[Rfam]
Nucleotides: 129
Stems, first nucleotide, its partner, number of pairs: 006121004010114002014030006034043003045109002049105002051102006057085004063081004
Number, partner (000 for none) and nucleotide at each position: 001000g002000u003000a004000u005000u006121g007120u008119g009118g010114g011113g012000a013000c014030c015029a016028c017027c018026u019025c020000c021000u022000a023000g024000a025019g026018a027017g028016g029015u030014g031000u032000u033000g034043g035042g036041c037000a038000u039000u040000a041036g042035c043034c044000a045109g046108c047000c048000a049105c050104g051102a052101c053100g054099g055098c056097u057085u058084g059083c060082a061000c062000g063081u064080g065079a066078g067000a068000a069000c070000u071000a072000g073000a074000c075000c076000c077000c078066u079065u080064c081063g082060u083059g084058c085057a086000g087000a088000c089000a090000c091000c092000a093000a094000g095000c096000c097056a098055g099054c100053c101052g102051u103000u104050c105049g106000c107000a108046g109045c110000c111000a112000g113011c114010c115000a116000g117000g118009c119008c120007g121006c122000u123000u124000u125000u126000u127000u128000c129000g